The record is a 125-nucleotide RNA sequence from Streptomyces morookaense, which matches "Streptomyces RNA 3920" in Rfam. On this family, see Vockenhuber et al., RNA Biol 2011: "Deep sequencing-based identification of small non-coding RNAs in Streptomyces coelicolor". It scores 102 bits against the family's covariance model. Rfam's curators write: Identified by deep sequencing of transcriptome at the end of exponential growth phase. Sequencing size consistent with northern blot size. Streptomyces specific. The organism belongs to Streptomyces, within Bacteria.
RNA sequence: GAUAGGUCUGUGUCGCCGGAGUGAUUGGACACUGACGCAGAGUCAACUAGCCUGGAUCGCACGGUUCUUCGUGCACAGGAACCGGGCGGCUCGAGCCAAGAGGGGGGAGGCUCGAGCCGCCGUCC
Numbered sequence: 001g002a003u004a005g006g007u008c009u010g011u012g013u014c015g016c017c018g019g020a021g022u023g024a025u026u027g028g029a030c031a032c033u034g035a036c037g038c039a040g041a042g043u044c045a046a047c048u049a050g051c052c053u054g055g056a057u058c059g060c061a062c063g064g065u066u067c068u069u070c071g072u073g074c075a076c077a078g079g080a081a082c083c084g085g086g087c088g089g090c091u092c093g094a095g096c097c098a099a100g101a102g103g104g105g106g107g108a109g110g111c112u113c114g115a116g117c118c119g120c121c122g123u124c125c
Stems, first nucleotide, its partner, number of pairs: 001014004015051002018048001021032003033045004059074006078083001085121013